[Rfam]
RNA: Makes More Granules Regulator RNA (mmgR)
Organism: Pleomorphomonas diazotrophica
RNA sequence: GCUGUCCGCCCUCCUUGGGCGUUUCCUCCCUAAGACUUGGGCCGCCGCGUUUGCGACGGCCCCUUUUCUUUUCAGCC
Numbered sequence: 001g002c003u004g005u006c007c008g009c010c011c012u013c014c015u016u017g018g019g020c021g022u023u024u025c026c027u028c029c030c031u032a033a034g035a036c037u038u039g040g041g042c043c044g045c046c047g048c049g050u051u052u053g054c055g056a057c058g059g060c061c062c063c064u065u066u067u068c069u070u071u072u073c074a075g076c077c
Stems, first nucleotide, its partner, number of pairs: 008020004039062006046055002